[Rfam]
RNA sequence: CGCUGAUGAGGUGAGAACUCCCUCCUCACACACUCCGCUUCGGCGGCGUAAAGUAGGCGAAAGCCGAAAGAGAUGCGGGAAUGUUGGGACCCCGCCAUCAGCG
Numbered sequence: 001c002g003c004u005g006a007u008g009a010g011g012u013g014a015g016a017a018c019u020c021c022c023u024c025c026u027c028a029c030a031c032a033c034u035c036c037g038c039u040u041c042g043g044c045g046g047c048g049u050a051a052a053g054u055a056g057g058c059g060a061a062a063g064c065c066g067a068a069a070g071a072g073a074u075g076c077g078g079g080a081a082u083g084u085u086g087g088g089a090c091c092c093c094g095c096c097a098u099c100a101g102c103g
Stems, first nucleotide, its partner, number of pairs: 001103008011029005019089004031070001037064004075095005
The family of this 103-nucleotide RNA sequence from Caulobacter sp. K31 is "skipping-rope RNA". Pairs were carried over by alignment from the consensus structure, which is taken from published work. Rfam classes the family as a small RNA. The organism belongs to Caulobacter, within Bacteria. The sequence is in the family's curated seed alignment.